[Rfam]
RNA sequence: GCCACAACACACGGGAGUCCGGUGAGCCGGGCUGAGAGGAAGCGAUCCACGCUUCGACCGUCGAACCUGAUCCGGAUCAUGCCGGCGCAGGGAGGAGAGAUCAGCAUGUCU
Numbered sequence: 001g002c003c004a005c006a007a008c009a010c011a012c013g014g015g016a017g018u019c020c021g022g023u024g025a026g027c028c029g030g031g032c033u034g035a036g037a038g039g040a041a042g043c044g045a046u047c048c049a050c051g052c053u054u055c056g057a058c059c060g061u062c063g064a065a066c067c068u069g070a071u072c073c074g075g076a077u078c079a080u081g082c083c084g085g086c087g088c089a090g091g092g093a094g095g096a097g098a099g100a101u102c103a104g105c106a107u108g109u110c111u
Stems, first nucleotide, its partner, number of pairs: 008097001010095001011061004017032005039055005066091004072085004
A member of the RNA family "TPP riboswitch aptamer (THI element)" from Frondihabitans australicus, 111 nucleotides long. Rfam describes the family as follows. Vitamin B(1) in its active form thiamin pyrophosphate (TPP) is an essential coenzyme that is synthesised by coupling of pyrimidine and thiazole moieties in bacteria. Its family is annotated with thiamine pyrophosphate binding in the Gene Ontology. The match comes from Rfam's covariance-model search (57 bits).